[Rfam]
RNA sequence: AUGAUUAAUGCGGGAGAGACCAUAUUUUUAUAUGGCGCCGAAGGAAAAAGUUGAUGGGCAGCCAAUCCACAAUGAAACUCUCAGGCAAAAGGACCGUGUUAUGACA
Numbered sequence: 001a002u003g004a005u006u007a008a009u010g011c012g013g014g015a016g017a018g019a020c021c022a023u024a025u026u027u028u029u030a031u032a033u034g035g036c037g038c039c040g041a042a043g044g045a046a047a048a049a050g051u052u053g054a055u056g057g058g059c060a061g062c063c064a065a066u067c068c069a070c071a072a073u074g075a076a077a078c079u080c081u082c083a084g085g086c087a088a089a090a091g092g093a094c095c096g097u098g099u100u101a102u103g104a105c106a
Stems, first nucleotide, its partner, number of pairs: 006101008020035004037086003040082002044080002050073004
Notes
This 106-nucleotide sequence from Tissierella praeacuta belongs to the Rfam family "Glycine riboswitch aptamer". A search with the family's covariance model found it, with a score of 68 bits. The organism belongs to Tissierella praeacuta, within Bacteria. Its family is annotated with glycine biosynthetic process in the Gene Ontology.